[Rfam]
RNA sequence: CAAAUGGCCGACUAGGGUUCCGGCUCGUCCACCACGACGAGCGGCUGGUCCGAGAGUGGGCGACCCUGACAGGGGUUACACGGCGGGACAAAAGCCCGGGAGAA
Number, nucleotide and partner (000 for none) at each position: 001c000002a000003a000004a000005u000006g000007g061008c060009c059010g000011a057012c056013u000014a000015g051016g050017g000018u000019u000020c048021c047022g045023g042024c041025u040026c039027g038028u037029c000030c000031a000032c000033c000034a000035c000036g000037a028038c027039g026040a025041g024042c023043g000044g000045c022046u000047g021048g020049u000050c016051c015052g000053a000054g000055a000056g012057u011058g000059g009060g008061c007062g077063a076064c075065c074066c073067u072068g000069a000070c000071a000072g067073g066074g065075g064076u063077u062078a000079c099080a000081c102082g000083g000084c000085g097086g096087g095088a000089c000090a000091a000092a000093a000094g000095c087096c086097c085098g000099g079100g000101a000102g081103a000104a000
Background
Shown here is a 104-nucleotide RNA sequence, a member of the family "Guanidine-I riboswitch aptamer". On this family, see Barrick et al., Proc Natl Acad Sci U S A 2004: "New RNA motifs suggest an expanded scope for riboswitches in bacterial genetic control". Pairs were carried over by alignment from the consensus structure.